[Rfam]
About this RNA
This 101-nucleotide RNA from Oceanispirochaeta crateris belongs to the Rfam family "Purine riboswitch aptamer". The organism belongs to Oceanispirochaeta, within Bacteria. Its family is annotated with purine nucleobase biosynthetic process in the Gene Ontology. The match comes from Rfam's covariance-model search (67 bits). From the family's description: Riboswitches are metabolite binding domains within certain messenger RNAs that serve as precision sensors for their corresponding targets. The literature on the family includes a 2003 paper in Cell by Mandal et al., "Riboswitches Control Fundamental Biochemical Pathways in Bacillus subtilis and Other Bacteria".
RNA sequence: GAGACCUGAAAAGAUAAAGCUUAUAUAUUCCGGAUAAUAUGGAUUCGAGAGUUUCUACUGAUCCCCGUAAAGGAUCAACUAUAAGUCAAUGAGAUCCUCUU
Numbered sequence: 001g002a003g004a005c006c007u008g009a010a011a012a013g014a015u016a017a018a019g020c021u022u023a024u025a026u027a028u029u030c031c032g033g034a035u036a037a038u039a040u041g042g043a044u045u046c047g048a049g050a051g052u053u054u055c056u057a058c059u060g061a062u063c064c065c066c067g068u069a070a071a072g073g074a075u076c077a078a079c080u081a082u083a084a085g086u087c088a089a090u091g092a093g094a095u096c097c098u099c100u101u
Base pairs, nucleotide, nucleotide: 019086020085021084022083023082024081025080029050030049031047032046033045034044035043059077060076061075062074063073064072